[Rfam]
RNA sequence: CGGUUACUAUCUUUGGUUAUCUAGCUGUAUGAGUGUUACUCGGCCAUCAUAAAGCUAGAUAACCGAAAGUAGGAAUGG
Numbered sequence: 001c002g003g004u005u006a007c008u009a010u011c012u013u014u015g016g017u018u019a020u021c022u023a024g025c026u027g028u029a030u031g032a033g034u035g036u037u038a039c040u041c042g043g044c045c046a047u048c049a050u051a052a053a054g055c056u057a058g059a060u061a062a063c064c065g066a067a068a069g070u071a072g073g074a075a076u077g078g
Stems, first nucleotide, its partner, number of pairs: 001078001003076003007072004012067015028051005
About this RNA
A member of the RNA family "mir-9/mir-79 microRNA precursor family" from Esox lucius, 78 nucleotides long. Pairs were carried over by alignment from the consensus structure, which was predicted with RNAalifold. Rfam 15.1 lists 5,647 matches to the family in 934 species.